A member of the RNA family "Group II catalytic intron D1-D4-6" from Acidiferrobacter sp. SPIII_3, 225 nucleotides long.
Rfam's curators write: Group II introns are found in rRNA, tRNA and mRNA of organelles in fungi, plants and protists, and also in mRNA in bacteria.
The pairing is the family consensus, mapped onto this sequence.
The organism belongs to Acidiferrobacter, within Bacteria.
A reference for the family is Bonen and Vogel (2001), "The ins and outs of group II introns", Trends Genet.
Rfam 15.1 lists 1,617 matches to the family in 661 species.
RNA sequence: CAAGUCCCGCACGGAGUAAGGGUGAGCCGCCCACUCCGGCCCCAAGCUAUGCGCGGUCCUGGGUAACCAGGGACGUGAAGUGUUAGUCGGGGAGUCCGUAGGCGAGGUAUUGAGCCACGAAAUACAUCAACUCGGGGUGCCGACGCUGUUAAGCGAAGCGGAAGGCCACGGUGGGACCCAGCGACAAGGCGAGUCGGAUCCCACACCCCGCGGGGUCGGAGACCC
Numbered sequence: 001c002a003a004g005u006c007c008c009g010c011a012c013g014g015a016g017u018a019a020g021g022g023u024g025a026g027c028c029g030c031c032c033a034c035u036c037c038g039g040c041c042c043c044a045a046g047c048u049a050u051g052c053g054c055g056g057u058c059c060u061g062g063g064u065a066a067c068c069a070g071g072g073a074c075g076u077g078a079a080g081u082g083u084u085a086g087u088c089g090g091g092g093a094g095u096c097c098g099u100a101g102g103c104g105a106g107g108u109a110u111u112g113a114g115c116c117a118c119g120a121a122a123u124a125c126a127u128c129a130a131c132u133c134g135g136g137g138u139g140c141c142g143a144c145g146c147u148g149u150u151a152a153g154c155g156a157a158g159c160g161g162a163a164g165g166c167c168a169c170g171g172u173g174g175g176a177c178c179c180a181g182c183g184a185c186a187a188g189g190c191g192a193g194u195c196g197g198a199u200c201c202c203a204c205a206c207c208c209c210g211c212g213g214g215g216u217c218g219g220a221g222a223c224c225c
Stems, first nucleotide, its partner, number of pairs: 012038005020032004026190002040092004046087004050082002052077004057072006111219001112217001114216003118212002133210006139166003144160004171204006178197002181194002